[Rfam]
RNA sequence: AACCUGUUGUUGGGCAUUGCUGCAACGGCAGGUAACGAUAAUCCUGUGGAGUAAAACAUGAGCGAUAAAAUUAUUCAUCUGAGUGAC
Numbered sequence: 001a002a003c004c005u006g007u008u009g010u011u012g013g014g015c016a017u018u019g020c021u022g023c024a025a026c027g028g029c030a031g032g033u034a035a036c037g038a039u040a041a042u043c044c045u046g047u048g049g050a051g052u053a054a055a056a057c058a059u060g061a062g063c064g065a066u067a068a069a070a071u072u073a074u075u076c077a078u079c080u081g082a083g084u085g086a087c
Base pairs, nucleotide, nucleotide: 008067009066010065011064012063015060016059021053022052023051026048027047029046030045031044032043071086072085073084074083075082076081
RNA: TrxA 5' UTR thermometer
Organism: Sodalis glossinidius